Small nucleolar RNA ZL1: a 193-nucleotide RNA sequence from Vombatus ursinus. A reference for the family is Kishore et al. (2013), "Insights into snoRNA biogenesis and processing from PAR-CLIP of snoRNA core proteins and small RNA sequencing", Genome Biol. It scores 102 bits against the family's covariance model. Host gene TRRAP. Predicted target U2@U47. Only GU-rich region is homologous to other known snoRNAs. Conserved in vertebrates. Gene Ontology terms of the family: RNA processing and nucleolus. The family has 5 seed sequences and 300 matches in Rfam 15.1. The base pairs follow the family's consensus structure, which was predicted with RNAfold. The organism belongs to Vombatus, within Eukaryota.
[Rfam]
RNA sequence: AGGGAAGCAAAAUGAUGGAUAUUAUUGGUUGGAGCCCUAAAGAGGCAAAUGUUUGUGUCUGUAUAUGAAUGAUUGCAUGUGUGCGCGCACUUGUGCCUGGAUGUAUGACUGGGUAUGAAUGGUGAUAGGGACCUAGUUAUAUGCCUUUUUAUAGAGGGCCAUGAUAUUUAAACUGAUAAGAUCUGAUUGCUUC
Numbered sequence: 001a002g003g004g005a006a007g008c009a010a011a012a013u014g015a016u017g018g019a020u021a022u023u024a025u026u027g028g029u030u031g032g033a034g035c036c037c038u039a040a041a042g043a044g045g046c047a048a049a050u051g052u053u054u055g056u057g058u059c060u061g062u063a064u065a066u067g068a069a070u071g072a073u074u075g076c077a078u079g080u081g082u083g084c085g086c087g088c089a090c091u092u093g094u095g096c097c098u099g100g101a102u103g104u105a106u107g108a109c110u111g112g113g114u115a116u117g118a119a120u121g122g123u124g125a126u127a128g129g130g131a132c133c134u135a136g137u138u139a140u141a142u143g144c145c146u147u148u149u150u151a152u153a154g155a156g157g158g159c160c161a162u163g164a165u166a167u168u169u170a171a172a173c174u175g176a177u178a179a180g181a182u183c184u185g186a187u188u189g190c191u192u193c
Base pairs, nucleotide, nucleotide: 004193005192006191007190008189009188010187014183015182016181026170027169028168030166031165037100038099039098043094046093047092048091050089051088052087054085055084056083059081065078066077067076069074103116104115105114106113120135121134122133138163139162140161143159144158145157146156